The family of this 83-nucleotide RNA sequence from Trichechus manatus is "Stem loopII regulatory element in POLB". The base pairs follow the family's consensus structure, which is taken from published work. Rfam links the family to the GO term regulation of RNA stability. The match comes from Rfam's covariance-model search (90 bits). It is annotated as a cis-regulatory element.

[Rfam]
RNA sequence: AGCCCAGCAGGAGUCUUAAUUUAUUUCCUAACCUUUGCUCUGUAAGGGUCUCUGGUGUUUUUAAAUAAUUCUUUCUUCAUGCC
Dot-bracket structure: .........(((...((((.....((....((((((((...))))))))....)).....))))...........))).....